[Rfam]
Rfam assigns this 160-nucleotide RNA from Eubacteriaceae bacterium Marseille-Q4139 to the family "Clostridiales-1 RNA".
RNA sequence: UGAAAGUCCCGGACAGCGGCGAUGUGGAUGAGCGUGCCUGCACGCGCAGACGCAUCAACAUUGGACGGGCUAAGGAGUAUGAGCAAGCAGGCCGAUAGGCCGGAUUGCGAAUGCUCCGGCAGAUGGCGAGAGCGCAAAGCGCGAAGCCAUCUGACUUUCA
Number, nucleotide and partner (000 for none) at each position: 001u160002g159003a158004a157005a156006g155007u154008c069009c068010c067011g066012g000013a000014c000015a062016g061017c000018g059019g000020c000021g056022a055023u054024g053025u052026g051027g000028a000029u048030g047031a000032g045033c044034g043035u042036g041037c000038c000039u000040g000041c036042a035043c034044g033045c032046g000047c030048a029049g000050a000051c026052g025053c024054a023055u022056c021057a000058a000059c018060a000061u016062u015063g000064g000065a000066c011067g010068g009069g008070c000071u000072a000073a000074g117075g116076a115077g114078u113079a112080u111081g000082a000083g108084c107085a106086a105087g000088c000089a000090g101091g100092c099093c098094g000095a000096u000097a000098g093099g092100c091101c090102g000103g000104a000105u086106u085107g084108c083109g000110a000111a080112u079113g078114c077115u076116c075117c074118g000119g000120c000121a152122g151123a150124u149125g148126g147127c146128g000129a000130g000131a000132g142133c141134g140135c139136a000137a000138a000139g135140c134141g133142c132143g000144a000145a000146g127147c126148c125149a124150u123151c122152u121153g000154a007155c006156u005157u004158u003159c002160a001

NCBI's taxonomy places the organism under Bacteria, Bacillati, Clostridia, Eubacteriales, Eubacteriaceae. The family's consensus secondary structure is taken from published work. The family's RNA type in Rfam is small RNA.